[Rfam]
RNA sequence: CCCCAUGCGCCUGAUGAGAACUCUGCUGCUGAGACCAUGUGACUGCUCAGACUCAAAGUAAACGCCCUGAUGCAUGCACA
Numbered sequence: 001c002c003c004c005a006u007g008c009g010c011c012u013g014a015u016g017a018g019a020a021c022u023c024u025g026c027u028g029c030u031g032a033g034a035c036c037a038u039g040u041g042a043c044u045g046c047u048c049a050g051a052c053u054c055a056a057a058g059u060a061a062a063c064g065c066c067c068u069g070a071u072g073c074a075u076g077c078a079c080a
Base pairs, nucleotide, nucleotide: 005075006074007073008072009071012019029050030049031048032047033046
Dot-bracket structure: ....(((((..(......).........(((((............)))))....................))))).....